The family of this 263-nucleotide RNA from Listeria welshimeri is "Listeria sRNA rli40".
RNA sequence: GGAAAUAUAUUUAAAGUAAGUGAGGCGUCCUUAUGAAAAUUUCUAAACCGGCAUAUAUGGUUUUGCUCGUUGUUGGCUUGGUUUUUGUUUUUUUAGGACUAUCUAAUAUCGGAAUUUCUAUUUUUUGGGAUUUUAGCGACUUAGAGAAUUUGAUGGUUGGUAGCUUAUUGAUCAUCAUUGGGCUCAUCACACUUAGAGUUCGGUAUUCAUUUAAAAAAAGAGAAUAAAAAGGCACUGCAAUUUGAUUUUGCAGUGCUUUUUUA
Numbered sequence: 001g002g003a004a005a006u007a008u009a010u011u012u013a014a015a016g017u018a019a020g021u022g023a024g025g026c027g028u029c030c031u032u033a034u035g036a037a038a039a040u041u042u043c044u045a046a047a048c049c050g051g052c053a054u055a056u057a058u059g060g061u062u063u064u065g066c067u068c069g070u071u072g073u074u075g076g077c078u079u080g081g082u083u084u085u086u087g088u089u090u091u092u093u094u095a096g097g098a099c100u101a102u103c104u105a106a107u108a109u110c111g112g113a114a115u116u117u118c119u120a121u122u123u124u125u126u127g128g129g130a131u132u133u134u135a136g137c138g139a140c141u142u143a144g145a146g147a148a149u150u151u152g153a154u155g156g157u158u159g160g161u162a163g164c165u166u167a168u169u170g171a172u173c174a175u176c177a178u179u180g181g182g183c184u185c186a187u188c189a190c191a192c193u194u195a196g197a198g199u200u201c202g203g204u205a206u207u208c209a210u211u212u213a214a215a216a217a218a219a220g221a222g223a224a225u226a227a228a229a230a231g232g233c234a235c236u237g238c239a240a241u242u243u244g245a246u247u248u249u250g251c252a253g254u255g256c257u258u259u260u261u262u263a
Stems, first nucleotide, its partner, number of pairs: 006226003010222003017213008027099005035092006045084006051077002055073003059067002112201006120149010151177011227261002230258011
The literature on the family includes a 2007 paper in Nucleic Acids Res by Mandin et al., "Identification of new noncoding RNAs in Listeria monocytogenes and prediction of mRNA targets".